[Rfam]
RNA sequence: CCGUGAUAGGCGGGGAGCUAGCGGUGCCCUGUACUCGCAAUCCGCUUCAGCGAGGCCGAAUUCCCUUCUGCGGUAUGAUGGAUGUAAGGUUCGCCUGAUAGAAGCGGUGUUGACCUUCGGAGUCCUCGCAACGAAUGCCCAUGAACCUGGUCAGGCCGGGAACGGAGCAGCCAUAAGUGGUUUCAUUCGUGUGUCGCAGGGUCGCUCUGGACGAGCUGGCUGGAUCAGCAGCACUUAUGUCGUCAUCACAAGGAAGGGUUCACGG
Numbered sequence: 001c002c003g004u005g006a007u008a009g010g011c012g013g014g015g016a017g018c019u020a021g022c023g024g025u026g027c028c029c030u031g032u033a034c035u036c037g038c039a040a041u042c043c044g045c046u047u048c049a050g051c052g053a054g055g056c057c058g059a060a061u062u063c064c065c066u067u068c069u070g071c072g073g074u075a076u077g078a079u080g081g082a083u084g085u086a087a088g089g090u091u092c093g094c095c096u097g098a099u100a101g102a103a104g105c106g107g108u109g110u111u112g113a114c115c116u117u118c119g120g121a122g123u124c125c126u127c128g129c130a131a132c133g134a135a136u137g138c139c140c141a142u143g144a145a146c147c148u149g150g151u152c153a154g155g156c157c158g159g160g161a162a163c164g165g166a167g168c169a170g171c172c173a174u175a176a177g178u179g180g181u182u183u184c185a186u187u188c189g190u191g192u193g194u195c196g197c198a199g200g201g202u203c204g205c206u207c208u209g210g211a212c213g214a215g216c217u218g219g220c221u222g223g224a225u226c227a228g229c230a231g232c233a234c235u236u237a238u239g240u241c242g243u244c245a246u247c248a249c250a251a252g253g254a255a256g257g258g259u260u261c262a263c264g265g
Base pairs, nucleotide, nucleotide: 001265002264003263004262005261006260009057010056011055012030013029014028015027017025018024019023034054035053036052037051038050063258064257065256066255067254068253069252072249075246076245081241082240083239084238085237086236087235088234093229096228104220105219106217107216108215116211117210118209119208120207121206122205123204124200125199126198127196128195129191130190132189133188134187135186136185137182139180140179141178142177148173149172150171151170156165157164158163

Rfam assigns this 265-nucleotide RNA sequence from Ectobacillus ponti to the family "Bacterial large signal recognition particle RNA". The organism belongs to Ectobacillus, within Bacteria. Gene Ontology terms of the family: signal recognition particle, plasma membrane targeting and SRP-dependent cotranslational protein targeting to membrane, signal sequence recognition. The match comes from Rfam's covariance-model search (184 bits). For this family Rfam cites "Prediction of signal recognition particle RNA genes" (Regalia et al., Nucleic Acids Res, 2002). The base pairs follow the family's consensus structure, which is taken from published work.